Glycine riboswitch aptamer: an 86-nucleotide RNA. The pairing is the family consensus, mapped onto this sequence.

RNA sequence: UUGGUUGACUUGGGAGAACAAGGACUGAUGGCCGAAGAUGCAAAGAGACUCCCUGAGCUUUCAGGCUCAAGUUCCAAGCUUUACAA
Numbered sequence: 001u002u003g004g005u006u007g008a009c010u011u012g013g014g015a016g017a018a019c020a021a022g023g024a025c026u027g028a029u030g031g032c033c034g035a036a037g038a039u040g041c042a043a044a045g046a047g048a049c050u051c052c053c054u055g056a057g058c059u060u061u062c063a064g065g066c067u068c069a070a071g072u073u074c075c076a077a078g079c080u081u082u083a084c085a086a
Base pairs, nucleotide, nucleotide: 007080009078010077011076012075013074020029031066032065033064034062035061038060040058044054045053